A member of the RNA family "CRISPR RNA direct repeat element" from Brunnivagina elsteri, 37 nucleotides long. Lineage of the source: Bacteria > Bacillati > Cyanobacteriota > Brunnivagina > Brunnivagina elsteri. A search with the family's covariance model found it, with a score of 42 bits. The base pairs follow the family's consensus structure, which was predicted with WAR.

RNA sequence: CUUUCAAUCCAUCUCCAGCCGAGAUGGUAGUUGAAAC
Number, nucleotide and partner (000 for none) at each position: 001c000002u000003u000004u000005c033006a032007a031008u030009c027010c026011a000012u000013c023014u022015c021016c000017a000018g000019c000020c000021g015022a014023g013024a000025u000026g010027g009028u000029a000030g008031u007032u006033g005034a000035a000036a000037c000